[Rfam]
RNA sequence: ACGAUGUUCCGCUACAAUGCAAUUUCGUUUGUAAGAGCAUCUG
Numbered sequence: 001a002c003g004a005u006g007u008u009c010c011g012c013u014a015c016a017a018u019g020c021a022a023u024u025u026c027g028u029u030u031g032u033a034a035g036a037g038c039a040u041c042u043g
Base pairs, nucleotide, nucleotide: 003041004040005039006038007037008036009035013033014032016029017028018027